[Rfam]
RNA sequence: UAUAAAGGAACGUCGACUAAGAUCGCCACGUCCUUAUGUCUUCGUCGGCACUAGCACGUCCUGUGCG
Numbered sequence: 001u002a003u004a005a006a007g008g009a010a011c012g013u014c015g016a017c018u019a020a021g022a023u024c025g026c027c028a029c030g031u032c033c034u035u036a037u038g039u040c041u042u043c044g045u046c047g048g049c050a051c052u053a054g055c056a057c058g059u060c061c062u063g064u065g066c067g
Stems, first nucleotide, its partner, number of pairs: 012049006025040001027038002054066004
Rfam assigns this 67-nucleotide sequence from Peribacillus cavernae to the family "Bacillaceae-1 RNA". By type it is a small RNA. Taxonomically the source falls in Peribacillus (Bacteria, Bacilli, Caryophanales, Bacillaceae).